[Rfam]
6S / SsrS RNA: a 182-nucleotide sequence from Asaccharospora irregularis. On this family, see Wassarman and Storz, Cell 2000: "6S RNA regulates E. coli RNA polymerase activity".
RNA sequence: GAAAUCCUGAAGCAUGCGAUGAAGCUUGUUUAAAUUCAACCGACAAAUGUUAUACGGGAGAUUGUGUUUAGUGGAUUAUAACAUGCCUACUUUGUUAGGACGUUAAAAACUACUAACAGAUCACCCACCUGGGAGUAUCUCGGGUAUGAAUUUAUACAGCUCAACGGUGUUUCGGGAUAUUU
Numbered sequence: 001g002a003a004a005u006c007c008u009g010a011a012g013c014a015u016g017c018g019a020u021g022a023a024g025c026u027u028g029u030u031u032a033a034a035u036u037c038a039a040c041c042g043a044c045a046a047a048u049g050u051u052a053u054a055c056g057g058g059a060g061a062u063u064g065u066g067u068u069u070a071g072u073g074g075a076u077u078a079u080a081a082c083a084u085g086c087c088u089a090c091u092u093u094g095u096u097a098g099g100a101c102g103u104u105a106a107a108a109a110c111u112a113c114u115a116a117c118a119g120a121u122c123a124c125c126c127a128c129c130u131g132g133g134a135g136u137a138u139c140u141c142g143g144g145u146a147u148g149a150a151u152u153u154a155u156a157c158a159g160c161u162c163a164a165c166g167g168u169g170u171u172u173c174g175g176g177a178u179a180u181u182u
Stems, first nucleotide, its partner, number of pairs: 002180001004178012017166002031154004036149003039145003056126003060122004067116001069115006081103002086099004